This 73-nucleotide RNA sequence from Mus musculus belongs to the Rfam family "mir-483 microRNA precursor family". The organism belongs to Mus, within Eukaryota. Its family is annotated with miRNA-mediated post-transcriptional gene silencing and RISC complex in the Gene Ontology. It is one of the family's seed sequences.

RNA sequence: GAGGGGGAAGACGGGAGAAGAGAAGGGAGUGGUUUUUGGGUGCCUCACUCCUCCCCUCCCGUCUUGUUCUCUC
Numbered sequence: 001g002a003g004g005g006g007g008a009a010g011a012c013g014g015g016a017g018a019a020g021a022g023a024a025g026g027g028a029g030u031g032g033u034u035u036u037u038g039g040g041u042g043c044c045u046c047a048c049u050c051c052u053c054c055c056c057u058c059c060c061g062u063c064u065u066g067u068u069c070u071c072u073c
Stems, first nucleotide, its partner, number of pairs: 004069003008065010022053001024052004029048002